[Rfam]
RNA sequence: AUGGAAUGAUGCGGCAGCGCGCGAGAGCGACGGGGAAGUGGUCGCACCCGACGCACCAUCCAUGAAGCAAUACUUCGUGAGACC
Numbered sequence: 001a002u003g004g005a006a007u008g009a010u011g012c013g014g015c016a017g018c019g020c021g022c023g024a025g026a027g028c029g030a031c032g033g034g035g036a037a038g039u040g041g042u043c044g045c046a047c048c049c050g051a052c053g054c055a056c057c058a059u060c061c062a063u064g065a066a067g068c069a070a071u072a073c074u075u076c077g078u079g080a081g082a083c084c
Stems, first nucleotide, its partner, number of pairs: 001063004006059003010055004020029003031050004
Rfam assigns this 84-nucleotide RNA from Pararhodospirillum photometricum to the family "Tick-borne Flavivirus exoribonuclease-resistant RNA element". On this family, see Pijlman et al., Cell Host Microbe 2008: "A highly structured, nuclease-resistant, noncoding RNA produced by flaviviruses is required for pathogenicity". From the family's description: The exoribonuclease-resistant RNA elements (xrRNA) are described throughout all groups of flaviviruses. Usually, each virus harbors two xrRNAs, xrRNA1 and xrRNA2, in the beginning of the 3' UTR. The formation of these stem-loops, especially xrRNA1, is vital to ensure resistance against XRN1 activity. The Y-shaped stem-loop is also termed SL II and SL IV, respectively. In order to function as xrRNA, the sequence downstream is needed as well, since the upper loop region forms a pseudoknot (PK) with the single-stranded region directly downstream to its respective hairpin. In some species, the region downstream also forms a small hairpin. In such cases, the PK interactions takes place between the two loop regions. Conserved formation of these structures were observed in mammalian cells but not in mosquito cells, suggesting this region has varying functions in different hosts. In plant-viruses, xrRNA elements have been observed as well, showing some similarities to flaviviral xrRNAs. However, plant-virus xrRNA and flaviviral xrRNA are distinguishable by their underlying three-dimensional folds. The sequence is in the family's curated seed alignment.